Background
A member of the RNA family "antisense RNA of dnaA mRNA" from Serratia symbiotica, 81 nucleotides long. The base pairs follow the family's consensus structure, which was predicted with RNAfold. Its family is annotated with regulation of mRNA stability in the Gene Ontology. It scores 78 bits against the family's covariance model.
[Rfam]
RNA sequence: UUUGGCAUUGGCCUUGCGCGCCAUGAUACCGUUGCCAACCGCGUGUAGCAGGUGAGUUUUACCCAAGCCGGUGCCGCCAUA
Numbered sequence: 001u002u003u004g005g006c007a008u009u010g011g012c013c014u015u016g017c018g019c020g021c022c023a024u025g026a027u028a029c030c031g032u033u034g035c036c037a038a039c040c041g042c043g044u045g046u047a048g049c050a051g052g053u054g055a056g057u058u059u060u061a062c063c064c065a066a067g068c069c070g071g072u073g074c075c076g077c078c079a080u081a
Stems, first nucleotide, its partner, number of pairs: 005042002009038001011036001013034001016032003020029001051078004056074002061072003
Taxonomically the source falls in Serratia symbiotica (Bacteria, Pseudomonadati, Pseudomonadota, Yersiniaceae).